[Rfam]
RNA sequence: UGGCUAAUGAUGAUAUGACCACUGUACAGUGUGAGAUCUGGAAACUAGGUGAUGGAAUGUGUUCUGAAAACAGACAGGCCA
Numbered sequence: 001u002g003g004c005u006a007a008u009g010a011u012g013a014u015a016u017g018a019c020c021a022c023u024g025u026a027c028a029g030u031g032u033g034a035g036a037u038c039u040g041g042a043a044a045c046u047a048g049g050u051g052a053u054g055g056a057a058u059g060u061g062u063u064c065u066g067a068a069a070a071c072a073g074a075c076a077g078g079c080c081a
Stems, first nucleotide, its partner, number of pairs: 002080004038048004
Dot-bracket structure: .((((................................((((...))))............................)))).
Source information
This 81-nucleotide RNA sequence from Jaculus jaculus belongs to the Rfam family "small Cajal body-specific RNA 18". A search with the family's covariance model found it, with a score of 76 bits. The family's RNA type in Rfam is small Cajal body RNA. From the family's description: scaRNAs are a specific class of small nuclear RNAs which localise to the Cajal bodies and guide the modification of RNA polymerase II transcribed spliceosomal RNAs U1, U2, U4, U5 and U12. This C/D box domain U91 (also known as U4-8) was identified by Darzacq and is predicted to guide the 2'O-ribose methylation of U4 snRNA C8. For this family Rfam cites "Guide RNAs with 5' caps and novel box C/D snoRNA-like domains for modification of snRNAs in metazoa" (Tycowski et al., Curr Biol, 2004). Gene Ontology terms of the family: nucleolus, RNA processing and Cajal body.